[Rfam]
RNA sequence: GAAAGAUCGGAUACCUGAUCCGGUUGGGUAGAACCUACCCCAAUCAAU
Numbered sequence: 001g002a003a004a005g006a007u008c009g010g011a012u013a014c015c016u017g018a019u020c021c022g023g024u025u026g027g028g029u030a031g032a033a034c035c036u037a038c039c040c041c042a043a044u045c046a047a048u
Stems, first nucleotide, its partner, number of pairs: 005025008026040006
Annotation
S4-Clostridia ribosomal protein leader: a 48-nucleotide RNA from bacterium 0.1xD8-71. The literature on the family includes a 2020 paper in BMC Microbiol by Eckert and Weinberg, "Discovery of 20 novel ribosomal leader candidates in bacteria and archaea". A search with the family's covariance model found it, with a score of 40 bits. Clan: Ribosomal Protein S4 Leader clan. By type it is a cis-regulatory leader. Pairs were carried over by alignment from the consensus structure, which is taken from published work.